[Rfam]
mir-365 microRNA precursor family: a 61-nucleotide sequence from Tupaia belangeri. A reference for the family is Xie et al. (2005), "Systematic discovery of regulatory motifs in human promoters and 3' UTRs by comparison of several mammals", Nature.

RNA sequence: AGGGACUUUCAGGGGCAGCUGUGUUUCCUGACUCAGUCAUAAUGCCCCUAAAAAUCCUUAU
Numbered sequence: 001a002g003g004g005a006c007u008u009u010c011a012g013g014g015g016c017a018g019c020u021g022u023g024u025u026u027c028c029u030g031a032c033u034c035a036g037u038c039a040u041a042a043u044g045c046c047c048c049u050a051a052a053a054a055u056c057c058u059u060a061u
Stems, first nucleotide, its partner, number of pairs: 001059005007053003011049007020041004